[Rfam]
RNA sequence: ACAACCAGCUAGGGGCGCCUGAUUUUCAGGCUGAGAGAGACCCUUACCACCUGAUCCGGUUAAUGCCGGCGUAGGGAAGCUGAACGCACCGACA
Numbered sequence: 001a002c003a004a005c006c007a008g009c010u011a012g013g014g015g016c017g018c019c020u021g022a023u024u025u026u027c028a029g030g031c032u033g034a035g036a037g038a039g040a041c042c043c044u045u046a047c048c049a050c051c052u053g054a055u056c057c058g059g060u061u062a063a064u065g066c067c068g069g070c071g072u073a074g075g076g077a078a079g080c081u082g083a084a085c086g087c088a089c090c091g092a093c094a
Base pairs, nucleotide, nucleotide: 006082007081008080009079010078011044012043013042014041017031018030019029020028021027050075051074052073053072056069057068058067059066
Source information: Rfam assigns this 94-nucleotide RNA sequence from endosymbiont of Tevnia jerichonana to the family "TPP riboswitch aptamer (THI element)". The match comes from Rfam's covariance-model search (79 bits). The family's consensus secondary structure is taken from published work. The source organism's lineage runs through Bacteria, Pseudomonadati, Gammaproteobacteria, sulfur-oxidizing symbionts and endosymbiont of Tevnia jerichonana.